[Rfam]
RNA sequence: CCCUCGCUCAAUAAAUCGCCAUUCGAAGCUCACAAACAGAGACGUUGCUUUUGGCAGCGUCUCACAUCUUCUUUAUGGCUUUGGGAGAAAGUCCCCGGACGUCUUCGUUUCGACGGAGCUUGCGGAAACGCGCCGCCAUAGAAGCACAGCGGCUGACCUCUGCACCCAGGCCCUCUCCCUGCGCUGGCCCUGCCCUCCGCUACAUCUGCCUGUGCAGCGCUUUGACUCUCACACUUCUCAAUGCUCUCGGUCCCCUUGGAUGAAGAUAUGAGUCCGCUGCCGAGUUGUGGGGAGAUUUUUGGGAUGACGGGUGUGUGGCAGGUGGAUGGUGGACAGACGUUUCGGUGCUCGUGGGUGUGGCAUCGGGUCGCAGUGGACUUGUUGUCGAGGUUGAUAGGUAUGCGAUUGCCCGGCGAAAGCUGGGUUACUCAAUGGGGCUCAUUCUUGACGCGAGG
Numbered sequence: 001c002c003c004u005c006g007c008u009c010a011a012u013a014a015a016u017c018g019c020c021a022u023u024c025g026a027a028g029c030u031c032a033c034a035a036a037c038a039g040a041g042a043c044g045u046u047g048c049u050u051u052u053g054g055c056a057g058c059g060u061c062u063c064a065c066a067u068c069u070u071c072u073u074u075a076u077g078g079c080u081u082u083g084g085g086a087g088a089a090a091g092u093c094c095c096c097g098g099a100c101g102u103c104u105u106c107g108u109u110u111c112g113a114c115g116g117a118g119c120u121u122g123c124g125g126a127a128a129c130g131c132g133c134c135g136c137c138a139u140a141g142a143a144g145c146a147c148a149g150c151g152g153c154u155g156a157c158c159u160c161u162g163c164a165c166c167c168a169g170g171c172c173c174u175c176u177c178c179c180u181g182c183g184c185u186g187g188c189c190c191u192g193c194c195c196u197c198c199g200c201u202a203c204a205u206c207u208g209c210c211u212g213u214g215c216a217g218c219g220c221u222u223u224g225a226c227u228c229u230c231a232c233a234c235u236u237c238u239c240a241a242u243g244c245u246c247u248c249g250g251u252c253c254c255c256u257u258g259g260a261u262g263a264a265g266a267u268a269u270g271a272g273u274c275c276g277c278u279g280c281c282g283a284g285u286u287g288u289g290g291g292g293a294g295a296u297u298u299u300u301g302g303g304a305u306g307a308c309g310g311g312u313g314u315g316u317g318g319c320a321g322g323u324g325g326a327u328g329g330u331g332g333a334c335a336g337a338c339g340u341u342u343c344g345g346u347g348c349u350c351g352u353g354g355g356u357g358u359g360g361c362a363u364c365g366g367g368u369c370g371c372a373g374u375g376g377a378c379u380u381g382u383u384g385u386c387g388a389g390g391u392u393g394a395u396a397g398g399u400a401u402g403c404g405a406u407u408g409c410c411c412g413g414c415g416a417a418a419g420c421u422g423g424g425u426u427a428c429u430c431a432a433u434g435g436g437g438c439u440c441a442u443u444c445u446u447g448a449c450g451c452g453a454g455g
Stems, first nucleotide, its partner, number of pairs: 002455006008448004014407006023085001024083006039063011090439002093437004121132004336378001338376001343373001345371003348367004356362002409424006
Rfam assigns this 455-nucleotide RNA sequence from Fusarium sarcochroum to the family "RNase MRP". Rfam classes the family as a ribozyme. For this family Rfam cites "Secondary structure of RNase MRP RNA as predicted by phylogenetic comparison" (Schmitt et al., FASEB J, 1993). RNase MRP is an enzymatically active ribonucleoprotein with two distinct roles in eukaryotes. In mitochondria it plays a direct role in the initiation of mitochondrial DNA replication. In the nucleus it is involved in precursor rRNA processing, where it cleaves the internal transcribed spacer 1 between 18S and 5.8S rRNAs. Despite distinct functions, RNase MRP has been shown to be evolutionarily related to RNase P. Like eukaryotic RNase P, RNase MRP is not catalytically active without associated protein subunits.